[Rfam]
Nucleotides: 085
Base pairs, nucleotide, nucleotide: 002084003083004082005081039058042057043056044055045054
Number, partner (000 for none) and nucleotide at each position: 001000g002084a003083a004082u005081g006000a007000g008000a009000u010000g011000a012000u013000g014000a015000u016000c017000g018000a019000u020000u021000u022000u023000g024000u025000u026000u027000c028000c029000c030000u031000a032000u033000u034000g035000g036000u037000u038000u039058g040000a041000u042057u043056g044055c045054c046000u047000g048000u049000a050000u051000g052000a053000u054045g055044g056043c057042a058039c059000u060000u061000u062000c063000g064000u065000a066000u067000u068000a069000g070000c071000u072000c073000u074000a075000u076000c077000u078000g079000a080000u081005c082004a083003u084002u085000c